[Rfam]
A member of the RNA family "Plastid-psbA-1 3UTR RNA", 69 nucleotides long.
RNA sequence: UAUUAUUAAAAUAAAGGAGCAAUAAUAAACCUCUUGUUAUAUCAAGAGGUUUAUUAUUGCUCCUUUAUU
Numbered sequence: 001u002a003u004u005a006u007u008a009a010a011a012u013a014a015a016g017g018a019g020c021a022a023u024a025a026u027a028a029a030c031c032u033c034u035u036g037u038u039a040u041a042u043c044a045a046g047a048g049g050u051u052u053a054u055u056a057u058u059g060c061u062c063c064u065u066u067a068u069u
Stems, first nucleotide, its partner, number of pairs: 013066013027052003031048005
Plastid psbA-1 is a non-coding RNA (ncRNA) present in plastids. It was identified in inverted repeat sequences in the 3 prime untranslate region (3UTR) of photosystem II quinone-binding protein (psbA).